RNA sequence: AAGGUCUGUUGCUCUGUUAAUGGGGUAGGAUCCAAGACUCCUUUAGGGGUUACACAGGCUCUCCUACCCAACUCCUAUUCUGUCAUGUCCUCGUCGUACAGAGUGGUAACUUGCCCCACCACAUAUCCAAGCUUGGGUAAACGGGGGACGGUGGAGCAAGGCAUAACAGGAGGGA
Numbered sequence: 001a002a003g004g005u006c007u008g009u010u011g012c013u014c015u016g017u018u019a020a021u022g023g024g025g026u027a028g029g030a031u032c033c034a035a036g037a038c039u040c041c042u043u044u045a046g047g048g049g050u051u052a053c054a055c056a057g058g059c060u061c062u063c064c065u066a067c068c069c070a071a072c073u074c075c076u077a078u079u080c081u082g083u084c085a086u087g088u089c090c091u092c093g094u095c096g097u098a099c100a101g102a103g104u105g106g107u108a109a110c111u112u113g114c115c116c117c118a119c120c121a122c123a124u125a126u127c128c129a130a131g132c133u134u135g136g137g138u139a140a141a142c143g144g145g146g147g148a149c150g151g152u153g154g155a156g157c158a159a160g161g162c163a164u165a166a167c168a169g170g171a172g173g174g175a
Stems, first nucleotide, its partner, number of pairs: 011104007023069008032058002073175004078171002081169001085097003089106002110160005117153004126148003
The family of this 175-nucleotide RNA from Anopheles stephensi is "drz-agam-2-2 ribozyme".
Pairs were carried over by alignment from the consensus structure, which is taken from published work.
The literature on the family includes a 2009 paper in Science by Webb et al., "Widespread occurrence of self-cleaving ribozymes".
Rfam 15.1 lists 486 matches to the family in 10 species.
The organism belongs to Neocellia, within Eukaryota.
Rfam links the family to the GO term catalytic activity.